[Rfam]
RNA sequence: UAGUGAGAUGAUGGUCUACCAUCUUUCGGGACUGACCAGUCAAUGGAGAUGCUUUAUUUUCGACUGAUCACUA
Numbered sequence: 001u002a003g004u005g006a007g008a009u010g011a012u013g014g015u016c017u018a019c020c021a022u023c024u025u026u027c028g029g030g031a032c033u034g035a036c037c038a039g040u041c042a043a044u045g046g047a048g049a050u051g052c053u054u055u056a057u058u059u060u061c062g063a064c065u066g067a068u069c070a071c072u073a
Stems, first nucleotide, its partner, number of pairs: 001073006
Small nucleolar RNA SNORD2: a 73-nucleotide RNA sequence from Albula glossodonta. The family's RNA type in Rfam is C/D-box small nucleolar RNA. The literature on the family includes a 2004 paper in Gene by Zhou et al., "Identification of a novel box C/D snoRNA from mouse nucleolar cDNA library".